[Rfam]
RNA sequence: GUGGGCUAUGGAGACAUGAGGCCAGUGACUGUUGGAGGUAAAAUUGUAGGGUCAUUGUGUGCCAUUGCUGGUGUGCUCACCAUUGCUUUACCAGUUCCUGUUAUUGUUUCAAAC
Numbered sequence: 001g002u003g004g005g006c007u008a009u010g011g012a013g014a015c016a017u018g019a020g021g022c023c024a025g026u027g028a029c030u031g032u033u034g035g036a037g038g039u040a041a042a043a044u045u046g047u048a049g050g051g052u053c054a055u056u057g058u059g060u061g062c063c064a065u066u067g068c069u070g071g072u073g074u075g076c077u078c079a080c081c082a083u084u085g086c087u088u089u090a091c092c093a094g095u096u097c098c099u100g101u102u103a104u105u106g107u108u109u110c111a112a113a114c
Stems, first nucleotide, its partner, number of pairs: 001114002005110001008107004013102004018097002021095002037077004049063002